[Rfam]
Nucleotides: 137
Stems, first nucleotide, its partner, number of pairs: 001028003004024005010019002106133003109129003113125001116123002
Number, partner (000 for none) and nucleotide at each position: 001028g002027a003026g004024g005023u006022g007021g008020u009000a010019u011018c012000c013000g014000c015000u016000a017000g018011g019010a020008a021007c022006u023005g024004c025000a026003c027002u028001c029000g030000a031000a032000u033000g034000u035000a036000a037000c038000u039000u040000u041000a042000u043000u044000u045000a046000u047000c048000u049000g050000a051000u052000u053000u054000a055000u056000u057000c058000g059000a060000a061000u062000u063000u064000g065000c066000a067000c068000g069000a070000a071000c072000u073000u074000a075000a076000u077000a078000c079000g080000a081000c082000c083000c084000a085000u086000g087000c088000u089000u090000g091000u092000a093000a094000g095000u096000a097000u098000g099000u100000c101000g102000g103000a104000u105000u106133c107132u108131g109129c110128u111127c112000u113125g114000a115000g116123c117122c118000u119000a120000a121000c122117g123116g124000a125113c126000c127111g128110a129109g130000a131108c132107a133106g134000a135000a136000g137000g

Rfam assigns this 137-nucleotide RNA from Paenibacillus foliorum to the family "pan motif".
It scores 39 bits against the family's covariance model.
By type it is a cis-regulatory element.